[Rfam]
RNA sequence: GGCUGUGAGGGUUCCUGGCGUGCUGAUUUGUGACCUAUGAUAAAAUCACAUUGCCAGGGAUUACCACACCGCC
Numbered sequence: 001g002g003c004u005g006u007g008a009g010g011g012u013u014c015c016u017g018g019c020g021u022g023c024u025g026a027u028u029u030g031u032g033a034c035c036u037a038u039g040a041u042a043a044a045a046u047c048a049c050a051u052u053g054c055c056a057g058g059g060a061u062u063a064c065c066a067c068a069c070c071g072c073c
Stems, first nucleotide, its partner, number of pairs: 001073002005069002009065002011061010021050002024048006
Rfam assigns this 73-nucleotide RNA from Tetraodon nigroviridis to the family "mir-23 microRNA precursor family".
It is one of the family's seed sequences.
A reference for the family is Lagos-Quintana et al. (2002), "Identification of tissue-specific microRNAs from mouse", Curr Biol.
Rfam links the family to the GO terms RISC complex and gene silencing by miRNA.
The base pairs follow the family's consensus structure, which was predicted with PFOLD.